[Rfam]
RNA sequence: CUUUCCGAGGAGCGCUGCGAGGUCGCCGGUCCCACCCGACCGCCCCCCAGGCUCGGAAACCGCGCGACGCGGUGAGAAUCAACGGCGCUCACGACAU
Numbered sequence: 001c002u003u004u005c006c007g008a009g010g011a012g013c014g015c016u017g018c019g020a021g022g023u024c025g026c027c028g029g030u031c032c033c034a035c036c037c038g039a040c041c042g043c044c045c046c047c048c049a050g051g052c053u054c055g056g057a058a059a060c061c062g063c064g065c066g067a068c069g070c071g072g073u074g075a076g077a078a079u080c081a082a083c084g085g086c087g088c089u090c091a092c093g094a095c096a097u
Base pairs, nucleotide, nucleotide: 002059003058004057005056006055007054008053021046022045024042025041
Dot-bracket structure: .(((((((............((.((...............))..))......)))))))......................................